[Rfam]
Nucleotides: 378
Stems, first nucleotide, its partner, number of pairs: 005023006024376004032356004038336002043067006052060002074332004079110002084105003088101001090099003114131005134328008144318001153314002158310004166297004172290003177284005182203006204262001208257004215250003219242007227235002266275002342351002358370004
Number, partner (000 for none) and nucleotide at each position: 001000g002000a003000g004000a005023g006022a007021c008020g009019a010018g011000a012000g013000g014000g015000u016000a017000a018010c019009u020008c021007g022006u023005c024376c025375g026374c027373c028000g029000u030000a031000a032356a033355c034354c035353c036000g037000a038336g039335g040000u041000u042000u043067c044066c045065u046064g047063g048062g049000c050000a051000a052060g053059g054000c055000u056000a057000a058000u059053c060052c061000u062048c063047c064046c065045a066044g067043g068000g069000u070000c071000a072000g073000u074332c075331g076330g077329g078000g079110g080109c081000u082000a083000a084105g085104g086103c087000g088101a089000g090099g091098c092097c093000g094000g095000a096000a097092g098091g099090c100000g101088u102000a103086g104085u105084c106000g107000a108000a109080g110079c111000g112000c113000a114131g115130c116129a117128g118127g119000c120000a121000g122000a123000c124000a125000u126000u127118c128117c129116u130115g131114c132000a133000c134328c135327g136326c137325g138324a139323u140322g141321g142000a143000a144318c145000c146000g147000u148000c149000a150000c151000g152000a153314c154313c155000g156000a157000c158310g159309g160308g161307g162000c163000g164000a165000c166297g167296g168295a169294u170000u171000g172290g173289g174288g175000u176000g177284g178283c179282u180281c181280g182203g183202c184201g185200g186199g187198g188000u189000u190000c191000u192000g193000g194000a195000c196000g197000u198187c199186c200185c201184c202183g203182u204262g205000a206000u207000g208257g209256a210255g211254c212000g213000c214000g215250g216249c217248c218000c219242g220241g221240a222239g223238a224237c225236c226000a227235g228234g229000c230000a231000a232000a233000u234228c235227c236225g237224g238223u239222c240221u241220c242219c243000a244000g245000g246000a247000g248217g249216g250215c251000g252000a253000g254211g255210c256209u257208c258000c259000g260000g261000a262204c263000g264000a265000a266275g267274c268000g269000a270000u271000c272000g273000a274267g275266c276000g277000a278000a279000g280181c281180g282179a283178g284177u285000g286000a287000g288174c289173c290172c291000g292000a293000g294169g295168u296167c297166c298000c299000u300000a301000g302000a303000a304000a305000a306000a307161c308160c309159c310158c311000u312000a313154g314153g315000c316000a317000g318144g319000c320000g321141c322140c323139a324138u325137c326136g327135c328134g329077c330076c331075c332074g333000u334000a335039c336038c337000g338000c339000a340000a341000a342351c343350c344000g345000a346000c347000a348000c349000a350343g351342g352000u353035g354034g355033g356032u357000g358370g359369g360368u361367a362000g363000a364000a365000c366000a367361u368360a369359c370358c371000g372000a373027g374026g375025c376024g377000a378000u
Overview
Rfam assigns this 378-nucleotide part of an RNA from Collinsella tanakaei to the family "Bacterial large subunit ribosomal RNA".